[Rfam]
RNA sequence: UCACACCCGCGCGGGAGAGUCCCGGGCAAACCAGCCUGUGGCGCCGAAGGAGCAAGACCUCCCCACAAACUCUCAGGCACCCAACCGCCGGGUCAGG
Numbered sequence: 001u002c003a004c005a006c007c008c009g010c011g012c013g014g015g016a017g018a019g020u021c022c023c024g025g026g027c028a029a030a031c032c033a034g035c036c037u038g039u040g041g042c043g044c045c046g047a048a049g050g051a052g053c054a055a056g057a058c059c060u061c062c063c064c065a066c067a068a069a070c071u072c073u074c075a076g077g078c079a080c081c082c083a084a085c086c087g088c089c090g091g092g093u094c095a096g097g
Stems, first nucleotide, its partner, number of pairs: 006092004011088004021041002043078003046074002050072003056066001
The family of this 97-nucleotide RNA sequence from Pseudofrankia inefficax is "Glycine riboswitch aptamer".
The organism belongs to Pseudofrankia, within Bacteria.
Rfam links the family to the GO term glycine biosynthetic process.
A search with the family's covariance model found it, with a score of 45 bits.